RNA: 6S / SsrS RNA
Organism: Sporomusa ovata
RNA sequence: CAUAGCCUGGGAUGAAUUGUUAUCUUAGCUAUGUCCAACCUACUGUAAUAUAUAGGGAAUUUAAUAGUAUGCAGCUGUCGAGCCACCUCAGAGUGGAGGGCAAAAGCGUACUCCAGAAUACCCACCUGCUGAGUGCAGGUUUGGACAUACAAAGAGACGGCAUUUUGGGCAUGA
Numbered sequence: 001c002a003u004a005g006c007c008u009g010g011g012a013u014g015a016a017u018u019g020u021u022a023u024c025u026u027a028g029c030u031a032u033g034u035c036c037a038a039c040c041u042a043c044u045g046u047a048a049u050a051u052a053u054a055g056g057g058a059a060u061u062u063a064a065u066a067g068u069a070u071g072c073a074g075c076u077g078u079c080g081a082g083c084c085a086c087c088u089c090a091g092a093g094u095g096g097a098g099g100g101c102a103a104a105a106g107c108g109u110a111c112u113c114c115a116g117a118a119u120a121c122c123c124a125c126c127u128g129c130u131g132a133g134u135g136c137a138g139g140u141u142u143g144g145a146c147a148u149a150c151a152a153a154g155a156g157a158c159g160g161c162a163u164u165u166u167g168g169g170c171a172u173g174a
Stems, first nucleotide, its partner, number of pairs: 002172002005170010018159003032147007039139002055123003059119004066112007078100002083096004
Dot-bracket structure: .((.((((((((((...(((...........(((((((((..............(((.((((...(((((((.....((...((((......))))..)).....)))))))...)))).)))..............)).))))))).........))).))))))))))))..